This 76-nucleotide RNA sequence from Myotis davidii belongs to the Rfam family "mir-9229 microRNA precursor family".

[Rfam]
RNA sequence: GAGAUACCCUUAUGAAGCAGGACUUGCUUCAGUGGGGCUUUUGUGUUCACUGAGUCUGCCCCUUGUGUGUGUCACU
Dot-bracket structure: (.(((((.(.((.(..(((.(((.....((((((((((....)).))))))))))))))..).)).).))))).).
The family has 7 seed sequences and 27,225 matches in Rfam 15.1.